[Rfam]
Nucleotides: 078
Base pairs, nucleotide, nucleotide: 009070010069011068013066014065018061019060023056024055025054029051030050031049032048033047034046035045036044
Number, partner (000 for none) and nucleotide at each position: 001000a002000c003000c004000u005000a006000g007000c008000c009070c010069u011068g012000a013066u014065g015000g016000g017000a018061a019060c020000g021000g022000c023056a024055u025054c026000c027000u028000u029051u030050u031049u032048c033047u034046g035045g036044c037000u038000u039000c040000u041000u042000u043000a044036g045035c046034c047033a048032g049031g050030a051029a052000a053000a054025g055024a056023u057000a058000c059000a060019g061018u062000g063000g064000a065014c066013g067000a068011c069010a070009g071000g072000a073000a074000a075000u076000a077000g078000c